[Rfam]
RNA sequence: CCCUUUGUCAUCCUAUGCCUGAGCGAUGCCUGGAGGCUGGGACGGCCAAGGGAGGCCCACGGGCUGCCACA
Numbered sequence: 001c002c003c004u005u006u007g008u009c010a011u012c013c014u015a016u017g018c019c020u021g022a023g024c025g026a027u028g029c030c031u032g033g034a035g036g037c038u039g040g041g042a043c044g045g046c047c048a049a050g051g052g053a054g055g056c057c058c059a060c061g062g063g064c065u066g067c068c069a070c071a
Base pairs, nucleotide, nucleotide: 001052002051003050004049005048007046008045011042012041013040014039015038017037018036019035020034
mir-204 microRNA precursor family: a 71-nucleotide RNA sequence from Mystacornis crossleyi. For this family Rfam cites "The developmental miRNA profiles of zebrafish as determined by small RNA cloning" (Chen et al., Genes Dev, 2005). It scores 57 bits against the family's covariance model. Pairs were carried over by alignment from the consensus structure, which was predicted with RNAalifold. NCBI's taxonomy places the organism under Eukaryota, Euteleostomi, Dinosauria, Saurischia, Mystacornis. Rfam links the family to the GO terms miRNA-mediated post-transcriptional gene silencing and RISC complex.